Shown here is a 263-nucleotide part of an RNA from Dehalococcoides mccartyi, a member of the family "Bacterial large subunit ribosomal RNA". Its family is annotated with structural constituent of ribosome and ribosome in the Gene Ontology.
RNA sequence: GGAGAUUUGCGAGGGUCUUUCCAUAGUACGAGAGGACCUGGAAGGACAGACCAAUGGUGUGUCAGUUGUUCUGCCAAGGGCAUUGCUGAGUAGCCAAGUCUGGUUUGGAUAAGCGCUGAAAGCAUCUAAGUGCGAAGCCGGCCUCAAGAUUAGAUCUCCCAUCCCGGGCAACCGGGGGUAAGACCGCAGGUAGACUACCUGCUUGAUAGGCUGCGUGUGUAAGUACCGUAAGGUAUUAAGCUUAGCAGUACUAAUGGUCGAGG
Number, nucleotide and partner (000 for none) at each position: 001g159002g158003a157004g156005a155006u154007u153008u152009g000010c000011g145012a144013g143014g142015g000016u000017c045018u044019u043020u042021c041022c040023a039024u000025a000026g000027u000028a000029c000030g000031a000032g000033a000034g000035g000036a000037c000038c000039u023040g022041g021042a020043a019044g018045g017046a000047c102048a101049g100050a099051c098052c000053a000054a000055u096056g095057g094058u000059g000060u000061g000062u089063c088064a087065g086066u085067u082068g081069u080070u079071c078072u077073g000074c000075c000076a000077a072078g071079g070080g069081c068082a067083u000084u000085g066086c065087u064088g063089a062090g000091u000092a000093g000094c057095c056096a055097a000098g051099u050100c049101u048102g047103g000104u000105u000106u140107g139108g138109a000110u000111a000112a000113g133114c132115g131116c130117u129118g000119a000120a000121a000122g000123c000124a000125u000126c000127u000128a000129a117130g116131u115132g114133c113134g000135a000136a000137g000138c108139c107140g106141g000142c014143c013144u012145c011146a000147a000148g000149a000150u000151u000152a008153g007154a006155u005156c004157u003158c002159c001160c000161a000162u177163c176164c175165c174166g173167g000168g000169c000170a000171a000172c000173c166174g165175g164176g163177g162178g000179u261180a000181a000182g259183a258184c257185c256186g202187c201188a200189g199190g198191u000192a000193g000194a000195c000196u000197a000198c190199c189200u188201g187202c186203u000204u000205g000206a000207u253208a252209g251210g249211c248212u247213g246214c245215g243216u000217g241218u000219g000220u000221a000222a000223g236224u235225a234226c233227c232228g000229u000230a000231a000232g227233g226234u225235a224236u223237u000238a000239a000240g000241c217242u000243u215244a000245g214246c213247a212248g211249u210250a000251c209252u208253a207254a000255u000256g185257g184258u183259c182260g000261a179262g000263g000